[Rfam]
RNA sequence: GCGGCCAUGGCGGAAUUGGUAGACGCACUACCUUGAGGUGGUAGCGGGGAGACCCGUGGAGGUUCGAGUCCUCUUGGCCGCA
Dot-bracket structure: (((((((..(((...........))).(((((.......))))).............(((((.......)))))))))))).
The record is an 82-nucleotide RNA from Microvirga aerophila, which matches "tRNA" in Rfam. Rfam links the family to the GO term triplet codon-amino acid adaptor activity. Lineage of the source: Bacteria > Pseudomonadati > Pseudomonadota > Alphaproteobacteria > Microvirga. The family's RNA type in Rfam is transfer RNA. A search with the family's covariance model found it, with a score of 54 bits.